[Rfam]
RNA: Small nucleolar RNA SNORD58
RNA sequence: UUGCUGUGAGGACGUACCUUAGGACACCUUUGGAAUACCAGUGAAAAAAAAAAUGACACGAAUUCUGAGCAAC
Numbered sequence: 001u002u003g004c005u006g007u008g009a010g011g012a013c014g015u016a017c018c019u020u021a022g023g024a025c026a027c028c029u030u031u032g033g034a035a036u037a038c039c040a041g042u043g044a045a046a047a048a049a050a051a052a053a054u055g056a057c058a059c060g061a062a063u064u065c066u067g068a069g070c071a072a073c
Stems, first nucleotide, its partner, number of pairs: 001072004